[Rfam]
RNA sequence: UCCUUCCGUAAAGGGGAGUAGCGUCAGGGAUAUCCUGAAAUAAAGUCGUCAUUACAUGGAAUUUUCCAUCGGCUUUAUUGGCCUAUUUGCUCUAGGCUC
Numbered sequence: 001u002c003c004u005u006c007c008g009u010a011a012a013g014g015g016g017a018g019u020a021g022c023g024u025c026a027g028g029g030a031u032a033u034c035c036u037g038a039a040a041u042a043a044a045g046u047c048g049u050c051a052u053u054a055c056a057u058g059g060a061a062u063u064u065u066c067c068a069u070c071g072g073c074u075u076u077a078u079u080g081g082c083c084u085a086u087u088u089g090c091u092c093u094a095g096g097c098u099c
Base pairs, nucleotide, nucleotide: 025037026036027035039079040078041077042076043075044074045073046072047071048070056069057068058067059066060065
The record is a 99-nucleotide RNA sequence from Bacillus sp. V5-8f, which matches "Manganese Mn2+ riboswitch aptamer (yybP-ykoY)" in Rfam.
Rfam links the family to the GO term manganese ion binding.
The organism belongs to Bacillus, within Bacteria.
This RNA was originally discovered in E. coli during a large scale screen and was named SraF. The family was later found to exist upstream of related families of protein genes in many bacteria, including the the yybP and ykoK genes in B. subtilis. The specific functions of these proteins are unknown, but this structured RNA element may be involved in their genetic regulation as a riboswitch.
A search with the family's covariance model found it, with a score of 50 bits.